[Rfam]
RNA sequence: AAGGUCGAUGCGGGAGAGUUCGACGUCUCAGACGAGCGAACACCGAAGGAGCAAUCCUCCCCGACAAUCUCUCAGGUACUCGUACCGCAUCGGACUG
Numbered sequence: 001a002a003g004g005u006c007g008a009u010g011c012g013g014g015a016g017a018g019u020u021c022g023a024c025g026u027c028u029c030a031g032a033c034g035a036g037c038g039a040a041c042a043c044c045g046a047a048g049g050a051g052c053a054a055u056c057c058u059c060c061c062c063g064a065c066a067a068u069c070u071c072u073c074a075g076g077u078a079c080u081c082g083u084a085c086c087g088c089a090u091c092g093g094a095c096u097g
Base pairs, nucleotide, nucleotide: 006092007091008090009089010088011087012086013085019040020039021038022037042077043076044075045073046072049071050070051069055064056063

Background
Glycine riboswitch aptamer: a 97-nucleotide RNA sequence from Cryobacterium psychrophilum. A search with the family's covariance model found it, with a score of 66 bits. Rfam describes the family as follows. This family represents the bacterial glycine riboswitch. Glycine riboswitches usually consist of two metabolite-binding aptamers domains with similar structures in tandem. The aptamers cooperatively bind glycine to regulate the expression of downstream genes. In Bacillus subtilis, this riboswitch is found upstream of the gcvT operon which controls glycine degradation. NCBI's taxonomy places the organism under Bacteria, Actinomycetes, Micrococcales, Microbacteriaceae, Cryobacterium.